This 307-nucleotide sequence from Acer saccharum belongs to the Rfam family "Plant signal recognition particle RNA". The literature on the family includes a 2000 paper in Science by Batey et al., "Crystal structure of the ribonucleoprotein core of the signal recognition particle". By type it is a non-coding RNA gene. Gene Ontology terms of the family: SRP-dependent cotranslational protein targeting to membrane, signal sequence recognition and signal recognition particle, endoplasmic reticulum targeting.
[Rfam]
RNA sequence: GCCGAGCUCAGUCACGAGGGCUUGUGACCCAAGUGGGGGCAUUAAGGUGGUGGGACGUUGGGUCAUGUCCUACUGGAUCGGGCUUAGUGUGGUAACAUACUGGCUUGCCCAUUCCAAGCCAAGAGUUGGGCCAUGGGUCUCUAGCGAAAGCUAGAGGUUCAUGGUCCCUAAAGUGGAGGGCACAGCGUGAGGCUGGUUUCACAGAGCAGCGACUACCUCCCGCUCUUGGCAGUGGAAGGAUAACGGGCCGGUGCCACUUGAGUCCAGUAUGGUCCAGUGGGUAGACCUUAACUGAACCAUCACUUUU
Numbered sequence: 001g002c003c004g005a006g007c008u009c010a011g012u013c014a015c016g017a018g019g020g021c022u023u024g025u026g027a028c029c030c031a032a033g034u035g036g037g038g039g040c041a042u043u044a045a046g047g048u049g050g051u052g053g054g055a056c057g058u059u060g061g062g063u064c065a066u067g068u069c070c071u072a073c074u075g076g077a078u079c080g081g082g083c084u085u086a087g088u089g090u091g092g093u094a095a096c097a098u099a100c101u102g103g104c105u106u107g108c109c110c111a112u113u114c115c116a117a118g119c120c121a122a123g124a125g126u127u128g129g130g131c132c133a134u135g136g137g138u139c140u141c142u143a144g145c146g147a148a149a150g151c152u153a154g155a156g157g158u159u160c161a162u163g164g165u166c167c168c169u170a171a172a173g174u175g176g177a178g179g180g181c182a183c184a185g186c187g188u189g190a191g192g193c194u195g196g197u198u199u200c201a202c203a204g205a206g207c208a209g210c211g212a213c214u215a216c217c218u219c220c221c222g223c224u225c226u227u228g229g230c231a232g233u234g235g236a237a238g239g240a241u242a243a244c245g246g247g248c249c250g251g252u253g254c255c256a257c258u259u260g261a262g263u264c265c266a267g268u269a270u271g272g273u274c275c276a277g278u279g280g281g282u283a284g285a286c287c288u289u290a291a292c293u294g295a296a297c298c299a300u301c302a303c304u305u306u307u
Stems, first nucleotide, its partner, number of pairs: 001040003004023006028037003044306010056294002058291003061287004070280010080265008089257004095252001100251008109239002112237005118230009128167018168173001175220005186211003193204003